[Rfam]
RNA sequence: CUUCCAUUCUAUCUAGAAACUCUUAUAU
Numbered sequence: 001c002u003u004c005c006a007u008u009c010u011a012u013c014u015a016g017a018a019a020c021u022c023u024u025a026u027a028u
Stems, first nucleotide, its partner, number of pairs: 007018004

This 28-nucleotide RNA from Leptidea sinapis belongs to the Rfam family "CRISPR RNA direct repeat element". Rfam links the family to the GO term defense response. The base pairs follow the family's consensus structure, which was predicted with WAR. The organism belongs to Leptidea, within Eukaryota.